[Rfam]
RNA: DUF805 RNA
RNA sequence: AUAUCGUGGAGAUCAGAAACCACUCAAAAAAACGAGGCGGAAUCCGAAAAGCCAUACGAGUAGGAAAUUC
Numbered sequence: 001a002u003a004u005c006g007u008g009g010a011g012a013u014c015a016g017a018a019a020c021c022a023c024u025c026a027a028a029a030a031a032a033c034g035a036g037g038c039g040g041a042a043u044c045c046g047a048a049a050a051g052c053c054a055u056a057c058g059a060g061u062a063g064g065a066a067a068u069u070c
Base pairs, nucleotide, nucleotide: 006023007022008021009020036053037052038051043064044063